RNA sequence: AGCCAAUGAUGAGCUACUUUAAUUUCUGACACCUCGUAUGACAACUGUAGCUGCAGUAUUUGAUUACAUCUUUUUUUGCUGAGGCUC
Numbered sequence: 001a002g003c004c005a006a007u008g009a010u011g012a013g014c015u016a017c018u019u020u021a022a023u024u025u026c027u028g029a030c031a032c033c034u035c036g037u038a039u040g041a042c043a044a045c046u047g048u049a050g051c052u053g054c055a056g057u058a059u060u061u062g063a064u065u066a067c068a069u070c071u072u073u074u075u076u077u078g079c080u081g082a083g084g085c086u087c
Stems, first nucleotide, its partner, number of pairs: 001086004044057005
Source information
The record is an 87-nucleotide RNA sequence from Pelusios castaneus, which matches "Small nucleolar RNA SNORD60" in Rfam. A reference for the family is Galardi et al. (2002), "Purified box C/D snoRNPs are able to reproduce site-specific 2'-O-methylation of target RNA in vitro", Mol Cell Biol. It is annotated as a C/D-box small nucleolar RNA. Its Rfam clan is "SNORD60 clan".